[Rfam]
RNA sequence: GGACAUCAGGACGAAGUGAGUGGGUUCUUUGGACCCAGGAAAGUCCCCGGGCCCUAUGCCGUAGAGAUACGGGCUCGGAAACGAGUAAGCUUCGAGUAUUGGGAAUGGGAUCCCCUUGCCUUCGGGCAAAAGGCUGAGACAUGUGUGGAGCCUGGAUCUCUUUCCGUUGCAACCUUGGCCGAUUUAACACAGUUAUUCACUUGGUCCAUUCAUUUGGACUAACUGAACGGGGAUUACGAUUCUGAUGUC
Numbered sequence: 001g002g003a004c005a006u007c008a009g010g011a012c013g014a015a016g017u018g019a020g021u022g023g024g025u026u027c028u029u030u031g032g033a034c035c036c037a038g039g040a041a042a043g044u045c046c047c048c049g050g051g052c053c054c055u056a057u058g059c060c061g062u063a064g065a066g067a068u069a070c071g072g073g074c075u076c077g078g079a080a081a082c083g084a085g086u087a088a089g090c091u092u093c094g095a096g097u098a099u100u101g102g103g104a105a106u107g108g109g110a111u112c113c114c115c116u117u118g119c120c121u122u123c124g125g126g127c128a129a130a131a132g133g134c135u136g137a138g139a140c141a142u143g144u145g146u147g148g149a150g151c152c153u154g155g156a157u158c159u160c161u162u163u164c165c166g167u168u169g170c171a172a173c174c175u176u177g178g179c180c181g182a183u184u185u186a187a188c189a190c191a192g193u194u195a196u197u198c199a200c201u202u203g204g205u206c207c208a209u210u211c212a213u214u215u216g217g218a219c220u221a222a223c224u225g226a227a228c229g230g231g232g233a234u235u236a237c238g239a240u241u242c243u244g245a246u247g248u249c
Stems, first nucleotide, its partner, number of pairs: 002249010014202006022036006041235002045232004060071004073086005089173001091171001098167002101164002107160003139146002204219005

RNase MRP: a 249-nucleotide RNA sequence from Papaver nudicaule. Gene Ontology terms of the family: rRNA processing, ribonuclease MRP activity and ribonuclease MRP complex. The base pairs follow the family's consensus structure, which is taken from published work. On this family, see Li et al., RNA 2002: "Phylogenetic analysis of the structure of RNase MRP RNA in yeasts". The match comes from Rfam's covariance-model search (77 bits). The family has 66 seed sequences and 3,510 matches in Rfam 15.1. NCBI's taxonomy places the organism under Eukaryota, Euphyllophyta, Papaveraceae, Papaveroideae, Papaver.